[Rfam]
RNA sequence: CGACGACGAGGAUAGGGGAAGUCGCCCGACGGCGGCUGGUCGAGAAAUUCUCC
Numbered sequence: 001c002g003a004c005g006a007c008g009a010g011g012a013u014a015g016g017g018g019a020a021g022u023c024g025c026c027c028g029a030c031g032g033c034g035g036c037u038g039g040u041c042g043a044g045a046a047a048u049u050c051u052c053c
Stems, first nucleotide, its partner, number of pairs: 020037007
RNA: leuA-Halobacteria RNA